[Rfam]
Streptomyces RNA 6106: an 88-nucleotide RNA sequence from Streptomyces sporangiiformans. The organism belongs to Streptomyces, within Bacteria.
RNA sequence: ACGCCGCCGCGUGCGGUGUGUGUGCUCCGCACGACGGGGGCCGGAGAACGGGGGUGGUGCCGUGUCGGCGCAGCACCACCCCCGUGCC
Number, nucleotide and partner (000 for none) at each position: 001a019002c018003g017004c016005c015006g014007c013008c000009g000010c000011g000012u000013g007014c006015g005016g004017u003018g002019u001020g000021u000022g000023u000024g000025c000026u045027c044028c043029g042030c040031a000032c038033g000034a000035c000036g000037g000038g032039g000040g030041c000042c029043g028044g027045a026046g000047a000048a085049c084050g083051g082052g081053g080054g079055u078056g077057g076058u075059g074060c073061c000062g071063u070064g069065u000066c000067g000068g000069c064070g063071c062072a000073g060074c059075a058076c057077c056078a055079c054080c053081c052082c051083c050084g049085u048086g000087c000088c000
Identified by deep sequencing of transcriptome at the end of exponential growth phase. The base pairs follow the family's consensus structure. By type it is a small RNA.